[Rfam]
RNA sequence: AAUGAUACUCCCGUAUUCGGUGCGGUCUGCCGGCAGGCAGAAGAUGCGGUUUCGGGUUGAAUGGAUACCCGCGAACGCAUUU
Numbered sequence: 001a002a003u004g005a006u007a008c009u010c011c012c013g014u015a016u017u018c019g020g021u022g023c024g025g026u027c028u029g030c031c032g033g034c035a036g037g038c039a040g041a042a043g044a045u046g047c048g049g050u051u052u053c054g055g056g057u058u059g060a061a062u063g064g065a066u067a068c069c070c071g072c073g074a075a076c077g078c079a080u081u082u
Stems, first nucleotide, its partner, number of pairs: 011025005026041006042082006050074001053071005
This 82-nucleotide RNA belongs to the Rfam family "dinG RNA". By type it is a small RNA. The family's consensus secondary structure is taken from published work.